[Rfam]
RNA sequence: UUAUAGUGUGCUCUCCGAGCCAGAUAGCCUAAAGCAUUGAUGCCACGGUUUAUUGGCCGUAAGGGUACGUUGGGAAACCGGCGUGCCUUCCACUGCGAAAAGGAGACCUGGAUGCGGCAUU
Numbered sequence: 001u002u003a004u005a006g007u008g009u010g011c012u013c014u015c016c017g018a019g020c021c022a023g024a025u026a027g028c029c030u031a032a033a034g035c036a037u038u039g040a041u042g043c044c045a046c047g048g049u050u051u052a053u054u055g056g057c058c059g060u061a062a063g064g065g066u067a068c069g070u071u072g073g074g075a076a077a078c079c080g081g082c083g084u085g086c087c088u089u090c091c092a093c094u095g096c097g098a099a100a101a102g103g104a105g106a107c108c109u110g111g112a113u114g115c116g117g118c119a120u121u
Base pairs, nucleotide, nucleotide: 004114012106013105014104015103016102019057020056021055022054023053026050027049028048029047034043035042036041063088064087065086066085067084068083069082070081071080072079073078089098090097

Source information:
This 121-nucleotide RNA sequence from Desulfoscipio gibsoniae belongs to the Rfam family "Molybdenum/Tungsten riboswitch aptamer (Moco RNA motif)". Rfam links the family to the GO terms molybdenum ion binding, regulation of gene expression and tungstate binding. It scores 68 bits against the family's covariance model.